[Rfam]
Nucleotides: 086
Stems, first nucleotide, its partner, number of pairs: 014074005020068003025062004031057003035053002
Number, partner (000 for none) and nucleotide at each position: 001000a002000g003000g004000c005000g006000c007000g008000a009000a010000c011000u012000a013000u014074g015073a016072a017071g018070a019000g020068a021067g022066c023000u024000a025062u026061c027060c028059a029000u030000c031057g032056a033055c034000a035053g036052u037000a038000u039000g040000g041000u042000a043000a044000a045000a046000a047000g048000a049000g050000a051000c052036a053035c054000u055033g056032u057031c058000a059028u060027g061026g062025a063000g064000u065000u066022g067021c068020u069000c070018u071017c072016u073015u074014u075000g076000u077000g078000g079000a080000c081000g082000c083000c084000g085000u086000c